[Rfam]
RNA: mir-156 microRNA precursor family
RNA sequence: AUGACAGAAGAGAGUGAGCACACAUGAACUUUUUGCAUAUGUUAAUGCUUGAAUUUAUGCGUGCUCACCCUCUAUCUGUCAU
Numbered sequence: 001a002u003g004a005c006a007g008a009a010g011a012g013a014g015u016g017a018g019c020a021c022a023c024a025u026g027a028a029c030u031u032u033u034u035g036c037a038u039a040u041g042u043u044a045a046u047g048c049u050u051g052a053a054u055u056u057a058u059g060c061g062u063g064c065u066c067a068c069c070c071u072c073u074a075u076c077u078g079u080c081a082u
Stems, first nucleotide, its partner, number of pairs: 001082008010072003014068008023059003